[Rfam]
RNA: Group II catalytic intron D1-D4-2
RNA sequence: GGAAGUAGGCCUUCCGGAAUCGACUUACAGGAGUAGGUUCCAAACCGCUGUGUGCGGCUCUAGUUAAGAGGUAGGGUCGUGAGCAACACAGUAAAAGGCCGUUCAAACGGUCAGGU
Numbered sequence: 001g002g003a004a005g006u007a008g009g010c011c012u013u014c015c016g017g018a019a020u021c022g023a024c025u026u027a028c029a030g031g032a033g034u035a036g037g038u039u040c041c042a043a044a045c046c047g048c049u050g051u052g053u054g055c056g057g058c059u060c061u062a063g064u065u066a067a068g069a070g071g072u073a074g075g076g077u078c079g080u081g082a083g084c085a086a087c088a089c090a091g092u093a094a095a096a097g098g099c100c101g102u103u104c105a106a107a108c109g110g111u112c113a114g115g116u
Base pairs, nucleotide, nucleotide: 001015002014003013004012005011016041017040018039019038020037021036023034024033025032026031046115048091049090050089051088052087053086054080055079057077058076059075061073062072064070097112098111099110100109101108102107